The record is a 97-nucleotide sequence from Cognatundibacterium luofuense, which matches "TPP riboswitch aptamer (THI element)" in Rfam.
RNA sequence: CGUGAUUGCUAGGGGUCCUGCCGCAUUGCGGCGGGUGAGAAAUACCCUCGAACCUGAUCUGGAUAAUGCCAGCGAAGGGAAGCACCGUUUUAGUCCU
Numbered sequence: 001c002g003u004g005a006u007u008g009c010u011a012g013g014g015g016u017c018c019u020g021c022c023g024c025a026u027u028g029c030g031g032c033g034g035g036u037g038a039g040a041a042a043u044a045c046c047c048u049c050g051a052a053c054c055u056g057a058u059c060u061g062g063a064u065a066a067u068g069c070c071a072g073c074g075a076a077g078g079g080a081a082g083c084a085c086c087g088u089u090u091u092a093g094u095c096c097u
Base pairs, nucleotide, nucleotide: 007084008083009082010081011048012047013046014045016042017035018034019033020032021031022030023029053078054077055076059072060071061070062069
About the family: Vitamin B(1) in its active form thiamin pyrophosphate (TPP) is an essential coenzyme that is synthesised by coupling of pyrimidine and thiazole moieties in bacteria. The previously detected thiamin-regulatory element, thi box was extended, resulting in a new, highly conserved RNA secondary structure, the THI element, which is widely distributed in eubacteria and also occurs in some archaea. Analysis of operon structures identified a large number of new candidate thiamin-regulated genes, mostly transporters, in various prokaryotic organisms. The THI element is a riboswitch that directly binds to TPP to regulate gene expression through a variety of mechanisms in archaea, bacteria and eukaryotes. through a variety of mechanisms in archaea, bacteria and eukaryotes. The match comes from Rfam's covariance-model search (63 bits). Lineage of the source: Bacteria > Pseudomonadota > Burkholderiales > Oxalobacteraceae > Cognatundibacterium.